A member of the RNA family "c-di-AMP riboswitch aptamer (ydaO/yuaA leader)" from Leptospira fluminis, 123 nucleotides long. It scores 75 bits against the family's covariance model. Pairs were carried over by alignment from the consensus structure. From the family's description: This family represents a conserved RNA structure found upstream of the ydaO and yuaA genes in Bacillus subtilis and related genes in other bacteria. The organism belongs to Leptospira, within Bacteria.

Nucleotides: 123
Base pairs, nucleotide, nucleotide: 011109012108013107014106018031019030020029032104033103034102035101036100037099042050051089052088053087059066060065067083068082069081070080
Number, partner (000 for none) and nucleotide at each position: 001000a002000g003000g004000c005000c006000g007000a008000g009000u010000c011109u012108g013107c014106c015000g016000a017000a018031u019030c020029c021000g022000a023000a024000a025000a026000a027000u028000c029020g030019g031018a032104g033103c034102g035101g036100a037099g038000g039000a040000a041000c042050c043000a044000a045000a046000u047000u048000u049000a050042g051089g052088g053087g054000c055000u056000a057000a058000c059066c060065u061000u062000u063000a064000c065060g066059g067083g068082g069081g070080a071000a072000a073000u074000c075000u076000c077000u078000c079000a080070u081069u082068c083067c084000c085000a086000g087053c088052c089051c090000g091000u092000c093000a094000g095000c096000u097000a098000a099037c100036u101035u102034c103033g104032c105000a106014g107013g108012c109011a110000u111000a112000g113000a114000g115000a116000g117000a118000a119000g120000a121000c122000g123000a